[Rfam]
RNA sequence: GUCCAAAAUACAGUGAUGUCUUUUCCAAGUACAUACCUGCUUGCUCUGUGUGGAAAAUGACUGCUGCAGAGUGAAAGAUGGAUCUUGGCU
Numbered sequence: 001g002u003c004c005a006a007a008a009u010a011c012a013g014u015g016a017u018g019u020c021u022u023u024u025c026c027a028a029g030u031a032c033a034u035a036c037c038u039g040c041u042u043g044c045u046c047u048g049u050g051u052g053g054a055a056a057a058u059g060a061c062u063g064c065u066g067c068a069g070a071g072u073g074a075a076a077g078a079u080g081g082a083u084c085u086u087g088g089c090u
Stems, first nucleotide, its partner, number of pairs: 001090001003088004008083002011080001
Shown here is a 90-nucleotide sequence from Todus mexicanus, a member of the family "Small nucleolar RNA SNORD121A".
It is annotated as a C/D-box small nucleolar RNA.
Rfam 15.1 lists 881 matches to the family in 444 species.
Its family is annotated with RNA processing and nucleolus in the Gene Ontology.